[Rfam]
RNA sequence: GCAGUAUAAAGGCAAACCUUUUGAAAAAAAGGGACGCAAAGCAAGUGGUCUAAGGGGGCUACCUAUGAUAGCACUGCUGCCUCA
Numbered sequence: 001g002c003a004g005u006a007u008a009a010a011g012g013c014a015a016a017c018c019u020u021u022u023g024a025a026a027a028a029a030a031g032g033g034a035c036g037c038a039a040a041g042c043a044a045g046u047g048g049u050c051u052a053a054g055g056g057g058g059c060u061a062c063c064u065a066u067g068a069u070a071g072c073a074c075u076g077c078u079g080c081c082u083c084a
Stems, first nucleotide, its partner, number of pairs: 012037002017032006040078004045074003048069003055063002
A member of the RNA family "c-di-GMP-I riboswitch aptamer" from Aquisalibacillus elongatus, 84 nucleotides long. Rfam's curators write: GEMM was predicted in a large-scale screen for bacterial structured RNA regulatory elements. The family's consensus secondary structure is taken from published work. Rfam links the family to the GO term cyclic-di-GMP binding. A search with the family's covariance model found it, with a score of 77 bits.